[Rfam]
RNA sequence: CAUGAUUAAUGGGCUUAGGGUCUGAAAAACUCAUACAUUGUUGUGUUGUCAUCAGCUUCAUCUCUUGAAAUUUUCCUACGGGAUUGGAGUCAAAAUUUCAGCACUAUAUGU
Numbered sequence: 001c002a003u004g005a006u007u008a009a010u011g012g013g014c015u016u017a018g019g020g021u022c023u024g025a026a027a028a029a030c031u032c033a034u035a036c037a038u039u040g041u042u043g044u045g046u047u048g049u050c051a052u053c054a055g056c057u058u059c060a061u062c063u064c065u066u067g068a069a070a071u072u073u074u075c076c077u078a079c080g081g082g083a084u085u086g087g088a089g090u091c092a093a094a095a096u097u098u099c100a101g102c103a104c105u106a107u108a109u110g111u
Stems, first nucleotide, its partner, number of pairs: 043104006055090005061083004
About this RNA:
This 111-nucleotide RNA sequence from Striga asiatica belongs to the Rfam family "Small nucleolar RNA snoR97". The source organism's lineage runs through Eukaryota, Streptophyta, Spermatophyta, Magnoliopsida and Striga. Rfam links the family to the GO terms nucleolus and RNA processing. A search with the family's covariance model found it, with a score of 82 bits.